[Rfam]
RNA sequence: UUAUGAGCAAAAUUGAUUUUUUUAGGUUCAUUCAAUUAAUGAUGUACGUGGUCCAUAAUAUGAACCACAUACAUCAUUAAUUGAAUGAACCUAAAAAGUUAAUUUUGCUUAUAA
Numbered sequence: 001u002u003a004u005g006a007g008c009a010a011a012a013u014u015g016a017u018u019u020u021u022u023u024a025g026g027u028u029c030a031u032u033c034a035a036u037u038a039a040u041g042a043u044g045u046a047c048g049u050g051g052u053c054c055a056u057a058a059u060a061u062g063a064a065c066c067a068c069a070u071a072c073a074u075c076a077u078u079a080a081u082u083g084a085a086u087g088a089a090c091c092u093a094a095a096a097a098g099u100u101a102a103u104u105u106u107g108c109u110u111a112u113a114a
Base pairs, nucleotide, nucleotide: 002113003112004111005110006109007108008107009106010105011104012103014101015100016099018098019097020096021095022094023093024092025091027089028088029087030086031085032084033083034082035081036080037079038078039077040076041075042074043073044072049067050066051065052064

Record summary
Rfam assigns this 114-nucleotide sequence from Medicago truncatula to the family "MIR2593 microRNA precursor family". It scores 108 bits against the family's covariance model. Gene Ontology terms of the family: miRNA-mediated post-transcriptional gene silencing and RISC complex. The family's consensus secondary structure was predicted with RNAalifold. Rfam 15.1 lists 1,262 matches to the family in 6 species.